[Rfam]
RNA sequence: AAAGCGUAAAUAAUCAGCAAACAGAAUAAAGUUUACGAUAAACCCUUGCCAUUCUGAAGCAGCUCCCUAUAAUGCGCAUCCAUCGACACGGCGCUGUGAGCAACUUCACAGAGUGGCCGGGGAGAGCAGAGAAAAUUAACGAAUUAAGUUGUUGACUCUGUAGCGGGAAAGCGUAAUGUGCACCUCCCGCGUUACCGUAAGAUUCGCCGCAAGCGAACAGGUAACGAACGCUCUUUAACAAUUUAUCAGAC
Numbered sequence: 001a002a003a004g005c006g007u008a009a010a011u012a013a014u015c016a017g018c019a020a021a022c023a024g025a026a027u028a029a030a031g032u033u034u035a036c037g038a039u040a041a042a043c044c045c046u047u048g049c050c051a052u053u054c055u056g057a058a059g060c061a062g063c064u065c066c067c068u069a070u071a072a073u074g075c076g077c078a079u080c081c082a083u084c085g086a087c088a089c090g091g092c093g094c095u096g097u098g099a100g101c102a103a104c105u106u107c108a109c110a111g112a113g114u115g116g117c118c119g120g121g122g123a124g125a126g127c128a129g130a131g132a133a134a135a136u137u138a139a140c141g142a143a144u145u146a147a148g149u150u151g152u153u154g155a156c157u158c159u160g161u162a163g164c165g166g167g168a169a170a171g172c173g174u175a176a177u178g179u180g181c182a183c184c185u186c187c188c189g190c191g192u193u194a195c196c197g198u199a200a201g202a203u204u205c206g207c208c209g210c211a212a213g214c215g216a217a218c219a220g221g222u223a224a225c226g227a228a229c230g231c232u233c234u235u236u237a238a239c240a241a242u243u244u245a246u247c248a249g250a251c
Stems, first nucleotide, its partner, number of pairs: 005230002007226001043122004048117008056107004062101004069097003074094004126161006134153003138149001140148001163190006171183001173181001191225006
RNA: Yersinia sRNA 197
Organism: Yersinia ruckeri